About this RNA
This 134-nucleotide sequence from Streptomyces sp. HGB0020 belongs to the Rfam family "Streptomyces-metH RNA". Pairs were carried over by alignment from the consensus structure, which is taken from published work.
RNA sequence: CUCGUCCGCCCCGUGGACGCCCCGGACAUCCCCGGGCGGACCCGGUUACCCUGGCGUGGUGCGCCCGCCGCGGGAAGGCCUGCGGCACGGGCGCAAAGCCGACAGCCGUCGCACUCAGAGGGAGCCCCUUCAUG
Numbered sequence: 001c002u003c004g005u006c007c008g009c010c011c012c013g014u015g016g017a018c019g020c021c022c023c024g025g026a027c028a029u030c031c032c033c034g035g036g037c038g039g040a041c042c043c044g045g046u047u048a049c050c051c052u053g054g055c056g057u058g059g060u061g062c063g064c065c066c067g068c069c070g071c072g073g074g075a076a077g078g079c080c081u082g083c084g085g086c087a088c089g090g091g092c093g094c095a096a097a098g099c100c101g102a103c104a105g106c107c108g109u110c111g112c113a114c115u116c117a118g119a120g121g122g123a124g125c126c127c128c129u130u131c132a133u134g
Stems, first nucleotide, its partner, number of pairs: 060095004065090003098112002101110003
It scores 86 bits against the family's covariance model.